[Rfam]
This 297-nucleotide sequence from Mucor plumbeus belongs to the Rfam family "Metazoan signal recognition particle RNA". It is annotated as a non-coding RNA gene. It scores 122 bits against the family's covariance model. The source organism's lineage runs through Eukaryota, Fungi, Mucoromycota, Mucoromycetes and Mucor.

RNA sequence: ACCGGAAAGUUUCACAACUUUCUGUAAGCAGAGUUGCGGUCUAUAAAGAGAUGAAUUCAUUCGUUGGUGGGCUCACGGUCUGCUUUGUGCUUUGUCGAAAACAGUGUCUUAGAGAGUCUGGUGUCAACAUUCGAGUUCGAGCGUAGGCUUGAGUUGGGAGGUUGUUCAAUACUGGGGAAACGCCCGAGGGUAGCAAUACAGCAGGGAAAACCUAGAGCACUGGUUCGGCUGUGAGAUCGCACGUUGGAGAAGCAUGUAAGUAUACUACCACUACGGAUGAGAACUUCCUCUUUUUAU
Numbered sequence: 001a002c003c004g005g006a007a008a009g010u011u012u013c014a015c016a017a018c019u020u021u022c023u024g025u026a027a028g029c030a031g032a033g034u035u036g037c038g039g040u041c042u043a044u045a046a047a048g049a050g051a052u053g054a055a056u057u058c059a060u061u062c063g064u065u066g067g068u069g070g071g072c073u074c075a076c077g078g079u080c081u082g083c084u085u086u087g088u089g090c091u092u093u094g095u096c097g098a099a100a101a102c103a104g105u106g107u108c109u110u111a112g113a114g115a116g117u118c119u120g121g122u123g124u125c126a127a128c129a130u131u132c133g134a135g136u137u138c139g140a141g142c143g144u145a146g147g148c149u150u151g152a153g154u155u156g157g158g159a160g161g162u163u164g165u166u167c168a169a170u171a172c173u174g175g176g177g178a179a180a181c182g183c184c185c186g187a188g189g190g191u192a193g194c195a196a197u198a199c200a201g202c203a204g205g206g207a208a209a210a211c212c213u214a215g216a217g218c219a220c221u222g223g224u225u226c227g228g229c230u231g232u233g234a235g236a237u238c239g240c241a242c243g244u245u246g247g248a249g250a251a252g253c254a255u256g257u258a259a260g261u262a263u264a265c266u267a268c269c270a271c272u273a274c275g276g277a278u279g280a281g282a283a284c285u286u287c288c289u290c291u292u293u294u295u296a297u
Stems, first nucleotide, its partner, number of pairs: 001040003004023008028037003043295001045293006054285001056283003060279001061276004066272005077266003081262003084258001086256002089253005095247001100245003104242004108235004113230002116226001118223007125164004130159003134155009165171001172215005183206003190199003